[Rfam]
RNA sequence: ACGAACCUUAAUUAAUAACACACAUAUACCGACACUUGAUAUCGGGGUGUCCAGUUCGCUGGAUCGAUACAAGGGGUGUAUGGAGGCCUAAC
Numbered sequence: 001a002c003g004a005a006c007c008u009u010a011a012u013u014a015a016u017a018a019c020a021c022a023c024a025u026a027u028a029c030c031g032a033c034a035c036u037u038g039a040u041a042u043c044g045g046g047g048u049g050u051c052c053a054g055u056u057c058g059c060u061g062g063a064u065c066g067a068u069a070c071a072a073g074g075g076g077u078g079u080a081u082g083g084a085g086g087c088c089u090a091a092c
Base pairs, nucleotide, nucleotide: 023082024081025080026079027078028077029076030075035073036072037071038070041068042067043066044065049064050063051062052061053060
Dot-bracket structure: ......................((((((((....((((..((((....(((((......))))))))).)))).))))))))..........
Rfam assigns this 92-nucleotide RNA from Salinimonas iocasae to the family "t44 RNA". The literature on the family includes a 2002 paper in Nucleic Acids Res by Tjaden et al., "Transcriptome analysis of Escherichia coli using high-density oligonucleotide probe arrays". Rfam's curators write: This family consists of a number of bacterial RNA genes of between 135 and 170 bases in length. The t44 gene has been identified in several species of enteric bacteria but homologs have also been identified in Pseudomonas and Coxiella species. The family's RNA type in Rfam is small RNA.